The record is a 208-nucleotide sequence from Endobacter medicaginis, which matches "permuted transfer-messenger RNA" in Rfam.

RNA sequence: GGUGAUAAGCGGCAGUUGGAAUAAGCGUUGUGGACCCGGGGGCAGUGCCCGGCGCCUCCACCAUUUCUCCCGGAGUUGACCGGGCGAUGGGGGCGAAACAGUUUCGACACGCGUGGUAAAGACCUGCCUUUUGCCCGGCAUGAUACCGCCGUCAUCGGGUCAAAUCACAAGUGCCAACGACAACAACGCUAUGGCGCUCGCUGCCUAA
Numbered sequence: 001g002g003u004g005a006u007a008a009g010c011g012g013c014a015g016u017u018g019g020a021a022u023a024a025g026c027g028u029u030g031u032g033g034a035c036c037c038g039g040g041g042g043c044a045g046u047g048c049c050c051g052g053c054g055c056c057u058c059c060a061c062c063a064u065u066u067c068u069c070c071c072g073g074a075g076u077u078g079a080c081c082g083g084g085c086g087a088u089g090g091g092g093g094c095g096a097a098a099c100a101g102u103u104u105c106g107a108c109a110c111g112c113g114u115g116g117u118a119a120a121g122a123c124c125u126g127c128c129u130u131u132u133g134c135c136c137g138g139c140a141u142g143a144u145a146c147c148g149c150c151g152u153c154a155u156c157g158g159g160u161c162a163a164a165u166c167a168c169a170a171g172u173g174c175c176a177a178c179g180a181c182a183a184c185a186a187c188g189c190u191a192u193g194g195c196g197c198u199c200g201c202u203g204c205c206u207a208a
Base pairs, nucleotide, nucleotide: 001135002134003133004132005131014125015124017122026113027112028111030110031109032108036052037051038050039049040048053095054094055093056092057091058090059089136151137150138149139148

On this family, see Williams and Bartel, RNA 1996: "Phylogenetic analysis of tmRNA secondary structure". The organism belongs to Endobacter, within Bacteria. The match comes from Rfam's covariance-model search (151 bits). Rfam classes the family as a non-coding RNA gene. Bacterial tmRNA, also known as 10Sa RNA or SsrA, is named for its dual tRNA and mRNA-like properties.